[Rfam]
RNA sequence: GCCACAUGAUGAUGUGAUGAUGUCAUGAUCCUGGGAUGUGAUGACCUCUGACCUAUCACCCUUGACUGAUGGCU
Numbered sequence: 001g002c003c004a005c006a007u008g009a010u011g012a013u014g015u016g017a018u019g020a021u022g023u024c025a026u027g028a029u030c031c032u033g034g035g036a037u038g039u040g041a042u043g044a045c046c047u048c049u050g051a052c053c054u055a056u057c058a059c060c061c062u063u064g065a066c067u068g069a070u071g072g073c074u
Base pairs, nucleotide, nucleotide: 001073002072003071004070029036030035
Small nucleolar RNA SNORD83: a 74-nucleotide RNA from Sphaeramia orbicularis. Pairs were carried over by alignment from the consensus structure, which was predicted with PFOLD. Rfam 15.1 lists 1,393 matches to the family in 644 species.